[Rfam]
The family of this 113-nucleotide RNA from Mycolicibacterium sarraceniae is "TPP riboswitch aptamer (THI element)". It scores 63 bits against the family's covariance model. The source organism's lineage runs through Bacteria, Actinomycetota, Actinomycetes, Mycobacteriales and Mycobacterium (subgen. Mycolicibacterium).
RNA sequence: GGGGGUUGGCACGGGAGCCCCGGCAGCGGGGCUGAGAGUGGAGGCGUUACCCCUCCAGACCGUCACCACCUGAUCCGGGUCAUGCCGGCGAAGGAAGCGAAAGGGAUAUGUCG
Numbered sequence: 001g002g003g004g005g006u007u008g009g010c011a012c013g014g015g016a017g018c019c020c021c022g023g024c025a026g027c028g029g030g031g032c033u034g035a036g037a038g039u040g041g042a043g044g045c046g047u048u049a050c051c052c053c054u055c056c057a058g059a060c061c062g063u064c065a066c067c068a069c070c071u072g073a074u075c076c077g078g079g080u081c082a083u084g085c086c087g088g089c090g091a092a093g094g095a096a097g098c099g100a101a102a103g104g105g106a107u108a109u110g111u112c113g
Base pairs, nucleotide, nucleotide: 006101007100009098010097011063012062013061014060017032018031019030020029021028039057040056041055042054043053069094070093071092075088076087077086078085
Dot-bracket structure: .....((.((((((..(((((......)))))......(((((.........)))))..)))).....(((...((((......))))...)))..)).))............